[Rfam]
RNA sequence: UCGCCGGGAGUGCGUCAUUUAGCACGCUGGGGCUACGGCCUCACCCGGCGU
Numbered sequence: 001u002c003g004c005c006g007g008g009a010g011u012g013c014g015u016c017a018u019u020u021a022g023c024a025c026g027c028u029g030g031g032g033c034u035a036c037g038g039c040c041u042c043a044c045c046c047g048g049c050g051u
Base pairs, nucleotide, nucleotide: 002050003049004048005047006046007045008044010025011024012023013022028043029042030041031040032039
Description:
This 51-nucleotide sequence belongs to the Rfam family "DUF3800-VI RNA". Rfam's curators put it in the seed alignment.